The record is a 46-nucleotide sequence from Acromyrmex charruanus, which matches "Histone 3' UTR stem-loop" in Rfam. Lineage of the source: Eukaryota > Opisthokonta > Altocrustacea > Formicoidea > Acromyrmex. A search with the family's covariance model found it, with a score of 42 bits. It is annotated as a cis-regulatory element. The mRNAs of metazoan histone genes lack a poly-A tail. 3' end processing occurs at a site between a highly conserved stem-loop (modelled by this family) and a purine rich region around 20 nts downstream (the histone downstream element, or HDE). The stem-loop is bound by a 31 kDa stem-loop binding protein (SLBP - also termed the histone hairpin binding protein, or HBP).
Nucleotides: 046
Stems, first nucleotide, its partner, number of pairs: 006021006
Number, partner (000 for none) and nucleotide at each position: 001000c002000a003000a004000a005000c006021g007020g008019c009018c010017c011016u012000u013000u014000u015000u016011a017010g018009g019008g020007c021006c022000a023000c024000u025000a026000a027000u028000u029000u030000u031000u032000u033000c034000a035000u036000a037000c038000a039000a040000a041000g042000a043000a044000u045000a046000u